Small nucleolar RNA SNORA71: a 134-nucleotide RNA from Myotis myotis.
Rfam classes the family as an H/ACA-box small nucleolar RNA.
The organism belongs to Myotis, within Eukaryota.
The members of this family belong to the H/ACA class of snoRNAs which bind a number of proteins (including dyskerin, Gar1p and Nop10p) to form snoRNP complexes.
The base pairs follow the family's consensus structure, which was predicted with PFOLD.

[Rfam]
RNA sequence: ACUUGCAUUUGAAAGUGAUUUUGGGUUGCCACGUGCCCUGGUCAUUGAUAUUGUAGGGAGAGAACUGCUGAAAGUGUUUCCCCAUGUUUGGAGAGUCCAUUUUUAUCCCUUCCAAAGUCUAAAACUUUCAUACA
Dot-bracket structure: .((((((.(....(((((((..((((........)))).)))))))...).)))))).........(.(((((((...........(((((((.(...........).))).)))).......))))))))...
Numbered sequence: 001a002c003u004u005g006c007a008u009u010u011g012a013a014a015g016u017g018a019u020u021u022u023g024g025g026u027u028g029c030c031a032c033g034u035g036c037c038c039u040g041g042u043c044a045u046u047g048a049u050a051u052u053g054u055a056g057g058g059a060g061a062g063a064a065c066u067g068c069u070g071a072a073a074g075u076g077u078u079u080c081c082c083c084a085u086g087u088u089u090g091g092a093g094a095g096u097c098c099a100u101u102u103u104u105a106u107c108c109c110u111u112c113c114a115a116a117g118u119c120u121a122a123a124a125c126u127u128u129c130a131u132a133c134a
Stems, first nucleotide, its partner, number of pairs: 002057006009050001014046007023038004067131001069130007087116004091111003095107001